[Rfam]
RNA sequence: UUUUAAUAAAAGCAAAACAAUUGAAAAAUUGUGACGCAAAGAUCUGAAUCUAAAGCUAAAUUAGCAAUGAUUGUCAGAUUCACCUCA
Numbered sequence: 001u002u003u004u005a006a007u008a009a010a011a012g013c014a015a016a017a018c019a020a021u022u023g024a025a026a027a028a029u030u031g032u033g034a035c036g037c038a039a040a041g042a043u044c045u046g047a048a049u050c051u052a053a054a055g056c057u058a059a060a061u062u063a064g065c066a067a068u069g070a071u072u073g074u075c076a077g078a079u080u081c082a083c084c085u086c087a
Base pairs, nucleotide, nucleotide: 012037013036017032018031019030020029021028022027041080042079043078045076046075047074048071049070050069055065056064057063058062